RNA sequence: UACGGUCUUCAGGGCGAGGUGAAACUCCUCACUGGCGGUAGCGCGAAAUCUUCUGCAAGGAAGCAAUUGCGAAGCCCGCGACCCUUGUGCAAGCAAGGCUGAUCUGGUGAAAAUCCAGAGCCAACGGUUACAGUCCGGAUGGAAGAAGACGAUG
Numbered sequence: 001u002a003c004g005g006u007c008u009u010c011a012g013g014g015c016g017a018g019g020u021g022a023a024a025c026u027c028c029u030c031a032c033u034g035g036c037g038g039u040a041g042c043g044c045g046a047a048a049u050c051u052u053c054u055g056c057a058a059g060g061a062a063g064c065a066a067u068u069g070c071g072a073a074g075c076c077c078g079c080g081a082c083c084c085u086u087g088u089g090c091a092a093g094c095a096a097g098g099c100u101g102a103u104c105u106g107g108u109g110a111a112a113a114u115c116c117a118g119a120g121c122c123a124a125c126g127g128u129u130a131c132a133g134u135c136c137g138g139a140u141g142g143a144a145g146a147a148g149a150c151g152a153u154g
Stems, first nucleotide, its partner, number of pairs: 005150006017029003031134002033123002035079004074121002083098002103119005125137003
The family of this 154-nucleotide RNA from Eggerthella sp. CAG:209 is "FMN riboswitch aptamer (RFN element)". The organism belongs to Eggerthella, within Bacteria. Rfam's curators write: The RFN element is a highly conserved domain that is found frequently in the 5'-untranslated regions of prokaryotic mRNAs that encode for flavin mononucleotide (FMN) biosynthesis and transport proteins. This element is a metabolite-dependent riboswitch that directly binds FMN in the absence of proteins. In Bacillus subtilis, the riboswitch most likely controls gene expression by causing premature transcription termination within the 5' untranslated region of the ribDEAHT operon and precluding access to the ribosome-binding site of ypaA mRNA.The FMN riboswitch structure, reported in present an FMN-bound six-stem junction, adopts a butterfly-like scaffold, stapled together by opposingly directed but nearly identically folded peripheral domains. The match comes from Rfam's covariance-model search (104 bits).